[Rfam]
RNA sequence: CUCUUAUCCAGAGAGGUCGAGGGACUGGCCCGAAGAGACCCGGCAACCGGCAAUGAUGCAGUGGUGCUAAUUCCAGCAGGAUAAUUAUCCUGGACGAUGAGAG
Numbered sequence: 001c002u003c004u005u006a007u008c009c010a011g012a013g014a015g016g017u018c019g020a021g022g023g024a025c026u027g028g029c030c031c032g033a034a035g036a037g038a039c040c041c042g043g044c045a046a047c048c049g050g051c052a053a054u055g056a057u058g059c060a061g062u063g064g065u066g067c068u069a070a071u072u073c074c075a076g077c078a079g080g081a082u083a084a085u086u087a088u089c090c091u092g093g094a095c096g097a098u099g100a101g102a103g
Base pairs, nucleotide, nucleotide: 001103002102003101004100005099006098007097008096013041015040016039017038021031022030023029025076026075027074028073042068043067044066045065047064048063050059051058052057077092078091079090080089081088082087

A member of the RNA family "SAM riboswitch aptamer (S box leader)" from Propionispora sp. 2/2-37, 103 nucleotides long.